[Rfam]
RNA sequence: UGAUGCUCCUCUCAUCCCUUAAGAUCCCUGGUAGGUGAGGAGAAGACCAGCAGGAUU
Number, nucleotide and partner (000 for none) at each position: 001u000002g000003a000004u000005g000006c042007u041008c040009c039010u038011c037012u000013c035014a032015u031016c030017c000018c000019u000020u000021a000022a000023g057024a056025u055026c054027c053028c000029u000030g016031g015032u014033a000034g000035g013036u000037g011038a010039g009040g008041a007042g006043a000044a000045g000046a000047c000048c000049a000050g000051c000052a000053g027054g026055a025056u024057u023
RNA: Antizyme RNA frameshifting stimulation element